[Rfam]
A member of the RNA family "Plant signal recognition particle RNA" from Marchantia polymorpha, 293 nucleotides long. The match comes from Rfam's covariance-model search (129 bits).
RNA sequence: UCUGGGCAGCAUAGCGGCUGUCUGUAACCCGAGCGGGAGUAAGAGAGAUGGGAGCUGGGGCUCUCGCAGACGACCGGUGGGAUCAUGUCCAAGGCACGUCCACUCGAAGCGUGGAGUCUCUGAUCUGGGCUCCUCGGCGGAAGUGAGGGGAGUCUGGGGGGAUAAUGUGGAGGGCACAGCGUGAGGCGGGCGACCGAGCAGCGAUCACUUCCCGCUCUGCGCAGUCGGGGGACUGCGUGCUUGAAUGCUUGCCAGCGAUCAUCCGACGUGAGGAGCUUCCUGCAACCUCUCUC
Numbered sequence: 001u002c003u004g005g006g007c008a009g010c011a012u013a014g015c016g017g018c019u020g021u022c023u024g025u026a027a028c029c030c031g032a033g034c035g036g037g038a039g040u041a042a043g044a045g046a047g048a049u050g051g052g053a054g055c056u057g058g059g060g061c062u063c064u065c066g067c068a069g070a071c072g073a074c075c076g077g078u079g080g081g082a083u084c085a086u087g088u089c090c091a092a093g094g095c096a097c098g099u100c101c102a103c104u105c106g107a108a109g110c111g112u113g114g115a116g117u118c119u120c121u122g123a124u125c126u127g128g129g130c131u132c133c134u135c136g137g138c139g140g141a142a143g144u145g146a147g148g149g150g151a152g153u154c155u156g157g158g159g160g161g162a163u164a165a166u167g168u169g170g171a172g173g174g175c176a177c178a179g180c181g182u183g184a185g186g187c188g189g190g191c192g193a194c195c196g197a198g199c200a201g202c203g204a205u206c207a208c209u210u211c212c213c214g215c216u217c218u219g220c221g222c223a224g225u226c227g228g229g230g231g232a233c234u235g236c237g238u239g240c241u242u243g244a245a246u247g248c249u250u251g252c253c254a255g256c257g258a259u260c261a262u263c264c265g266a267c268g269u270g271a272g273g274a275g276c277u278u279c280c281u282g283c284a285a286c287c288u289c290u291c292u293c
Stems, first nucleotide, its partner, number of pairs: 002039002004023007028037003043293006050287002054283001057280002059277003062273006069267001071265002076263004080253002086244001092242008100231002103229005109222009119161003124158012138145002169212005178205001180203003187196003